[Rfam]
RNA: skipping-rope RNA
RNA sequence: UGAAUAAGAGGACGGAACGGGUAGCCGUCGCCGGAUAAGGUGCAAGACCUUUGAGUAGGAGAUGUGGGAGUGUCGCCCCACCUUAGUUU
Numbered sequence: 001u002g003a004a005u006a007a008g009a010g011g012a013c014g015g016a017a018c019g020g021g022u023a024g025c026c027g028u029c030g031c032c033g034g035a036u037a038a039g040g041u042g043c044a045a046g047a048c049c050u051u052u053g054a055g056u057a058g059g060a061g062a063u064g065u066g067g068g069a070g071u072g073u074c075g076c077c078c079c080a081c082c083u084u085a086g087u088u089u
Stems, first nucleotide, its partner, number of pairs: 002088002005085004011029005020074004031059001038050004064081005